[Rfam]
RNA sequence: UGGGUUGAUGAUGACUACUGGUGGUGUAUGAGUCAUCUACAAUGAAUAUGUCUCUGGAACUCUGAGGUGUGU
Numbered sequence: 001u002g003g004g005u006u007g008a009u010g011a012u013g014a015c016u017a018c019u020g021g022u023g024g025u026g027u028a029u030g031a032g033u034c035a036u037c038u039a040c041a042a043u044g045a046a047u048a049u050g051u052c053u054c055u056g057g058a059a060c061u062c063u064g065a066g067g068u069g070u071g072u
Base pairs, nucleotide, nucleotide: 002070004068005067006066
Notes
Shown here is a 72-nucleotide sequence from Macaca mulatta, a member of the family "Small nucleolar RNA SNORD113/SNORD114 family". Gene Ontology terms of the family: RNA processing and nucleolus. The family is grouped with related families in Rfam's "SNORD74 clan". A search with the family's covariance model found it, with a score of 69 bits. The literature on the family includes a 2002 paper in Hum Mol Genet by Cavaille et al., "Identification of tandemly-repeated C/D snoRNA genes at the imprinted human 14q32 domain reminiscent of those at the Prader-Willi/Angelman syndrome region". The imprinted human domain at 14q32 contains two clusters of tandemly repeated small nucleolar RNAs named 14q(I) and 14q(II) snoRNAs. These two clusters are named SNORD113 and SNORD114 respectively in the HGNC approved gene symbol nomenclature. The organism belongs to Macaca, within Eukaryota.